RNA sequence: GGGGGUGAUCGGUUUCGACUGGAGUGGUAGCUCCAGGGGAAGCGGGCCGAGAAUCCAGAGUCAACUCGUUAAUGUCCUCUGGGAACCAACAAGUGCCGAUACCAAUCGCACUGACUUCGCUCUCGCUGCCUGAUCAGUGAUCGAAGGGUCAGCCCGGGUGUAGCCUUCCGCCCGGUCCCUGGCCUCAUUCAGAAGGCUUGCUCAGUGGUUCGUGUCCGGGGGACCGCUGGGGACUUCACCCGGACUGGGCCUGGCCGCAACUCGCCGGCGUGAGUGCGGGGGCCGAGCAGACCGUCACAGCCGGCUGCGCCCGGAGAAGACCUGGUUCGCCUCGUCAGGACGCGGGUUCGAUUCCCGCCACCUCCACCA
Numbered sequence: 001g002g003g004g005g006u007g008a009u010c011g012g013u014u015u016c017g018a019c020u021g022g023a024g025u026g027g028u029a030g031c032u033c034c035a036g037g038g039g040a041a042g043c044g045g046g047c048c049g050a051g052a053a054u055c056c057a058g059a060g061u062c063a064a065c066u067c068g069u070u071a072a073u074g075u076c077c078u079c080u081g082g083g084a085a086c087c088a089a090c091a092a093g094u095g096c097c098g099a100u101a102c103c104a105a106u107c108g109c110a111c112u113g114a115c116u117u118c119g120c121u122c123u124c125g126c127u128g129c130c131u132g133a134u135c136a137g138u139g140a141u142c143g144a145a146g147g148g149u150c151a152g153c154c155c156g157g158g159u160g161u162a163g164c165c166u167u168c169c170g171c172c173c174g175g176u177c178c179c180u181g182g183c184c185u186c187a188u189u190c191a192g193a194a195g196g197c198u199u200g201c202u203c204a205g206u207g208g209u210u211c212g213u214g215u216c217c218g219g220g221g222g223a224c225c226g227c228u229g230g231g232g233a234c235u236u237c238a239c240c241c242g243g244a245c246u247g248g249g250c251c252u253g254g255c256c257g258c259a260a261c262u263c264g265c266c267g268g269c270g271u272g273a274g275u276g277c278g279g280g281g282g283c284c285g286a287g288c289a290g291a292c293c294g295u296c297a298c299a300g301c302c303g304g305c306u307g308c309g310c311c312c313g314g315a316g317a318a319g320a321c322c323u324g325g326u327u328c329g330c331c332u333c334g335u336c337a338g339g340a341c342g343c344g345g346g347u348u349c350g351a352u353u354c355c356c357g358c359c360a361c362c363u364c365c366a367c368c369a
Base pairs, nucleotide, nucleotide: 001365002364003363004362005361006360007359019338020337021336022335024333026331027330028329030328033325034324035323036322037321043313044312045311046310047309048068049067050066051065054083055082056081057080058079059078060077123140124139125138126137127136128135147184148183149182150181151180152179154175155174156173157172158171159170160169163197164196165195166194167193168192201231202230203229204228205227206226207225208224209223214246217243219241248284249283250282251281252280255279256278257277260275261274262273264305265304266303267302271299272298342358343357344356345355346354
Dot-bracket structure: (((((((...........((((.(.(((.(..(((((.....((((([[[[..(((((((....]]]]........))))))).......................................((((((......))))))......((((((.(((((((..[[[[[[)))))))...)))))).......]]]]]]...(((((((((....[..[.[...))))))))).........].]..].(((((..(((..(((.[[[[...[[))).)))))))).............]]..]]]]...))))).......)))))..)))).).))))...(((((.......))))))))))))....